[Rfam]
RNA sequence: UGAUAGCGUAGAAGCGUGAGGUUGCUGCCGCAAGGCAGGUUUUCCGUGGAGCGAAUGUCAAGGCCGGUAUUAACCGGCAG
Numbered sequence: 001u002g003a004u005a006g007c008g009u010a011g012a013a014g015c016g017u018g019a020g021g022u023u024g025c026u027g028c029c030g031c032a033a034g035g036c037a038g039g040u041u042u043u044c045c046g047u048g049g050a051g052c053g054a055a056u057g058u059c060a061a062g063g064c065c066g067g068u069a070u071u072a073a074c075c076g077g078c079a080g
Stems, first nucleotide, its partner, number of pairs: 014047003018044004025038005056079004062075002
RNA: S10-Clostridia ribosomal protein leader